[Rfam]
RNA sequence: AACUAAAUGAAAGCGCCAGAACUUAAACAAAUUUAAAUGUUUAAGUUGACGAGGAACAGGGUUAAUCGAGGUUUCGGCGGAUGCCCUGCGGUGUCACCACCGUUAAAGAAUCUACAAAGCUCUCAAGUGAUUGAGAGUACAAAAUGAUUCAGGUGAGGUCU
Numbered sequence: 001a002a003c004u005a006a007a008u009g010a011a012a013g014c015g016c017c018a019g020a021a022c023u024u025a026a027a028c029a030a031a032u033u034u035a036a037a038u039g040u041u042u043a044a045g046u047u048g049a050c051g052a053g054g055a056a057c058a059g060g061g062u063u064a065a066u067c068g069a070g071g072u073u074u075c076g077g078c079g080g081a082u083g084c085c086c087u088g089c090g091g092u093g094u095c096a097c098c099a100c101c102g103u104u105a106a107a108g109a110a111u112c113u114a115c116a117a118a119g120c121u122c123u124c125a126a127g128u129g130a131u132u133g134a135g136a137g138u139a140c141a142a143a144a145u146g147a148u149u150c151a152g153g154u155g156a157g158g159u160c161u
Base pairs, nucleotide, nucleotide: 020047021046022045023044024043025042026041027040029038057088058087059086060085061084066077067076068075069074089102090101091100092099093098108150109149110148111147112146120137121136122135123134124133125132126131